The family of this 80-nucleotide sequence is "skipping-rope RNA".
RNA sequence: AAUUGUUGAGUCGGGAAUGGCUCCCGACACUUCCUGAUAAGGGAACCUGAGAAGCAAGAUACGCCUCCCUGUCAGCAAUC
Numbered sequence: 001a002a003u004u005g006u007u008g009a010g011u012c013g014g015g016a017a018u019g020g021c022u023c024c025c026g027a028c029a030c031u032u033c034c035u036g037a038u039a040a041g042g043g044a045a046c047c048u049g050a051g052a053a054g055c056a057a058g059a060u061a062c063g064c065c066u067c068c069c070u071g072u073c074a075g076c077a078a079u080c
Base pairs, nucleotide, nucleotide: 002079003078004077005076006075007074008073010028011027012026013025014024019065020064021063030049032043033042034041035040054072055071056070058068
The family's RNA type in Rfam is small RNA.